[Rfam]
RNA sequence: CCUGGCCGAGUGGUUCUUAACAGUUCAACAGUUCUCUAUCGAAAUUGUGAAAUGUUUAGGACCACUUGAUCCGG
Numbered sequence: 001c002c003u004g005g006c007c008g009a010g011u012g013g014u015u016c017u018u019a020a021c022a023g024u025u026c027a028a029c030a031g032u033u034c035u036c037u038a039u040c041g042a043a044a045u046u047g048u049g050a051a052a053u054g055u056u057u058a059g060g061a062c063c064a065c066u067u068g069a070u071c072c073g074g
Stems, first nucleotide, its partner, number of pairs: 009066006016059002019056004024051004
Rfam assigns this 74-nucleotide RNA sequence from Xenopus tropicalis to the family "mir-203 microRNA precursor family". The family has 32 seed sequences and 1,049 matches in Rfam 15.1. The family's consensus secondary structure was predicted with RNAalifold.